Overview
This 79-nucleotide sequence from Nyctiprogne leucopyga belongs to the Rfam family "Small nucleolar RNA SNORD111". It is annotated as a C/D-box small nucleolar RNA. Rfam links the family to the GO terms nucleolus and RNA processing.
RNA sequence: CAGCCUGAAACGAUGUUACGAAUUCAUGUCUCUUCUCUGAGAUGUCUCGUGGAGAUCAGAUGUGUUUCUGAUCAGGCUU
Numbered sequence: 001c002a003g004c005c006u007g008a009a010a011c012g013a014u015g016u017u018a019c020g021a022a023u024u025c026a027u028g029u030c031u032c033u034u035c036u037c038u039g040a041g042a043u044g045u046c047u048c049g050u051g052g053a054g055a056u057c058a059g060a061u062g063u064g065u066u067u068c069u070g071a072u073c074a075g076g077c078u079u
Base pairs, nucleotide, nucleotide: 002078003077004076005075